[Rfam]
RNA sequence: UUCUUAUCAAGAGAAGUGGAGGAACUGGUCCUGUGAAGCUUCAGCAACCACCAACGUCAGUUGGCCGGUGCUAAUUCCAGCAAGUGGUAAACACUUGAAAGAUAAGAA
Numbered sequence: 001u002u003c004u005u006a007u008c009a010a011g012a013g014a015a016g017u018g019g020a021g022g023a024a025c026u027g028g029u030c031c032u033g034u035g036a037a038g039c040u041u042c043a044g045c046a047a048c049c050a051c052c053a054a055c056g057u058c059a060g061u062u063g064g065c066c067g068g069u070g071c072u073a074a075u076u077c078c079a080g081c082a083a084g085u086g087g088u089a090a091a092c093a094c095u096u097g098a099a100a101g102a103u104a105a106g107a108a
Stems, first nucleotide, its partner, number of pairs: 001108008013042005021031003025080004043072004048068002051063001053061001076100001081097006
RNA: SAM riboswitch aptamer (S box leader)
Organism: Halobacillus karajensis